[Rfam]
RNA sequence: CUUGAUCGUCUUGCCUGUAAAAGGAUACAUAAAGGUGACAAGGGCUUGUAGUCCCAGCUACUCAGGAGUUCCGGACUGCAGUGAGCUGCGCUGAUCAGGUGUCCACACUAAGUUCCGUGUCAGUAUUGUGACCUCCAGGGAGUGGGGGCACCACAAGGGUUGUCUGAGAAGGGGGUGAACUGACCCAGGUUGGAAACGGAACAGGUCAAAGCUCCUGUGCAGAUCAGCAGUGGGUUCGUGCCUGUGAACAGCCACUGCACUCCAGCCUGAACAGCAUGGUGAGACCCGUAUCUA
Numbered sequence: 001c002u003u004g005a006u007c008g009u010c011u012u013g014c015c016u017g018u019a020a021a022a023g024g025a026u027a028c029a030u031a032a033a034g035g036u037g038a039c040a041a042g043g044g045c046u047u048g049u050a051g052u053c054c055c056a057g058c059u060a061c062u063c064a065g066g067a068g069u070u071c072c073g074g075a076c077u078g079c080a081g082u083g084a085g086c087u088g089c090g091c092u093g094a095u096c097a098g099g100u101g102u103c104c105a106c107a108c109u110a111a112g113u114u115c116c117g118u119g120u121c122a123g124u125a126u127u128g129u130g131a132c133c134u135c136c137a138g139g140g141a142g143u144g145g146g147g148g149c150a151c152c153a154c155a156a157g158g159g160u161u162g163u164c165u166g167a168g169a170a171g172g173g174g175g176u177g178a179a180c181u182g183a184c185c186c187a188g189g190u191u192g193g194a195a196a197c198g199g200a201a202c203a204g205g206u207c208a209a210a211g212c213u214c215c216u217g218u219g220c221a222g223a224u225c226a227g228c229a230g231u232g233g234g235u236u237c238g239u240g241c242c243u244g245u246g247a248a249c250a251g252c253c254a255c256u257g258c259a260c261u262c263c264a265g266c267c268u269g270a271a272c273a274g275c276a277u278g279g280u281g282a283g284a285c286c287c288g289u290a291u292c293u294a
Base pairs, nucleotide, nucleotide: 001013004010005009037292038291040289042287043286044285046284052282053281055279058274059273062270063269064268065267066266071265073263074262075261077259078258079257080256081255082254083253085252086251087250088249091246096244097243098242099241100240101239102238103234104233106232107231108230109229112225114223115222117220118219119218120217121162122161123160124159126156127155128154129153130152133148134147135146136145138143163169164168170216172215173214174213175212176211181208182207183206184205185204190199191198192197

Annotation:
The record is a 294-nucleotide sequence from Lynx canadensis, which matches "Metazoan signal recognition particle RNA" in Rfam. It scores 122 bits against the family's covariance model. By type it is a non-coding RNA gene. On this family, see Wild et al., Curr Opin Struct Biol 2002: "Towards the structure of the mammalian signal recognition particle". The family's consensus secondary structure is taken from published work.